Notes:
Small nucleolar RNA SNORD72: an 81-nucleotide RNA from Albula goreensis. Rfam describes the family as follows. snoRNA HBII-240 belongs to the CD family of snoRNAs. It is the human orthologue of the mouse MBII-240 and is predicted to guide 2'O-ribose methylation of the large 28S rRNA at residue U4590. NCBI's taxonomy places the organism under Eukaryota, Metazoa, Actinopterygii, Elopomorpha, Albula. Pairs were carried over by alignment from the consensus structure.
RNA sequence: GUCUUGUCAGUGAUGUUGCAAAUACAAAUGUCUGAACAUAUGAAUUUUAUUGAUUCAAAGAUUUUUUUACUGAGACGAGAC
Numbered sequence: 001g002u003c004u005u006g007u008c009a010g011u012g013a014u015g016u017u018g019c020a021a022a023u024a025c026a027a028a029u030g031u032c033u034g035a036a037c038a039u040a041u042g043a044a045u046u047u048u049a050u051u052g053a054u055u056c057a058a059a060g061a062u063u064u065u066u067u068u069a070c071u072g073a074g075a076c077g078a079g080a081c
Base pairs, nucleotide, nucleotide: 002080003079004078005077006076007075008074